[Rfam]
RNA sequence: GGGAGUCGGGUCUGUGGUUGAAAGUCGAUGCCAGUCGCAGGCGAAACGAUCCACAUAAGCGGGGCAAAGUUCCCGUGAGCAUGGUGCGGCUUAGAUGUAAGUCCUGUCGUGCGGCAUUCAAAAUCGAAUGCGGUGCGAGAGUGGCAGUAGUGGGCGGCGUAAAGCUCAGUAGCGAACCCACCGACAGGCGAGUGUGGGGGCAAAAACCAGGUCAGCCGACUCCA
Numbered sequence: 001g002g003g004a005g006u007c008g009g010g011u012c013u014g015u016g017g018u019u020g021a022a023a024g025u026c027g028a029u030g031c032c033a034g035u036c037g038c039a040g041g042c043g044a045a046a047c048g049a050u051c052c053a054c055a056u057a058a059g060c061g062g063g064g065c066a067a068a069g070u071u072c073c074c075g076u077g078a079g080c081a082u083g084g085u086g087c088g089g090c091u092u093a094g095a096u097g098u099a100a101g102u103c104c105u106g107u108c109g110u111g112c113g114g115c116a117u118u119c120a121a122a123a124u125c126g127a128a129u130g131c132g133g134u135g136c137g138a139g140a141g142u143g144g145c146a147g148u149a150g151u152g153g154g155c156g157g158c159g160u161a162a163a164g165c166u167c168a169g170u171a172g173c174g175a176a177c178c179c180a181c182c183g184a185c186a187g188g189c190g191a192g193u194g195u196g197g198g199g200g201c202a203a204a205a206a207c208c209a210g211g212u213c214a215g216c217c218g219a220c221u222c223c224a
Base pairs, nucleotide, nucleotide: 002223003222004221005220006219007218008217009216012215013214014213015209016208017207018206019205028195029194030193031041033091034090035089036088037087038086039085050084051083058076061073062072063071082202103188104187105186106185107184108137109136110135111134112133141181142180143179144178150173151172156166157165158164

Shown here is a 224-nucleotide RNA sequence, a member of the family "raiA RNA".
The family's consensus secondary structure is taken from published work.
Rfam classes the family as a riboswitch.